[Rfam]
RNA sequence: UGUCUCCUUUUUACUUUGCCAAUUGGACUUUGCCAGUUGUCUUUAUUGGCUAUUUUGGGGGCAAAAAAAAAUACCCUUUUAAAAUUCAGGUAAUCUGGGUGUGUUUUUUGUAUGCUGUCAAAGGAAACAAAA
Numbered sequence: 001u002g003u004c005u006c007c008u009u010u011u012u013a014c015u016u017u018g019c020c021a022a023u024u025g026g027a028c029u030u031u032g033c034c035a036g037u038u039g040u041c042u043u044u045a046u047u048g049g050c051u052a053u054u055u056u057g058g059g060g061g062c063a064a065a066a067a068a069a070a071a072u073a074c075c076c077u078u079u080u081a082a083a084a085u086u087c088a089g090g091u092a093a094u095c096u097g098g099g100u101g102u103g104u105u106u107u108u109u110g111u112a113u114g115c116u117g118u119c120a121a122a123g124g125a126a127a128c129a130a131a132a
Base pairs, nucleotide, nucleotide: 038063039062040061041060042059046057048055049054075124076123077122078121079120087110088108089107090106092104095101

The record is a 132-nucleotide sequence from Erinaceus europaeus, which matches "Small nucleolar RNA SNORA27" in Rfam. About the family: ACA27 is a member of the H/ACA class of snoRNA that guide the sites of modification of uridines to pseudouridines. A search with the family's covariance model found it, with a score of 84 bits. The base pairs follow the family's consensus structure. The family has 24 seed sequences and 819 matches in Rfam 15.1.